[Rfam]
RNA sequence: AGCACCUUUAAAAUCAGUCCCGUGAGGCUGGCAAGGUGAACGACGAAUCGAACGGUCCAAGCGGAUGCGCCGACGGCAUAGAUGCCGGUGAGGUGUGUCUGUCCCGGUAUGACCUGUUCUGUUCCUGUGCGCGCAAACCUUGCCGAUACGGCAAGGUUUUUUUAUG
Numbered sequence: 001a002g003c004a005c006c007u008u009u010a011a012a013a014u015c016a017g018u019c020c021c022g023u024g025a026g027g028c029u030g031g032c033a034a035g036g037u038g039a040a041c042g043a044c045g046a047a048u049c050g051a052a053c054g055g056u057c058c059a060a061g062c063g064g065a066u067g068c069g070c071c072g073a074c075g076g077c078a079u080a081g082a083u084g085c086c087g088g089u090g091a092g093g094u095g096u097g098u099c100u101g102u103c104c105c106g107g108u109a110u111g112a113c114c115u116g117u118u119c120u121g122u123u124c125c126u127g128u129g130c131g132c133g134c135a136a137a138c139c140u141u142g143c144c145g146a147u148a149c150g151g152c153a154a155g156g157u158u159u160u161u162u163u164a165u166g
Stems, first nucleotide, its partner, number of pairs: 003038006014031006048121001050119006133161001135159011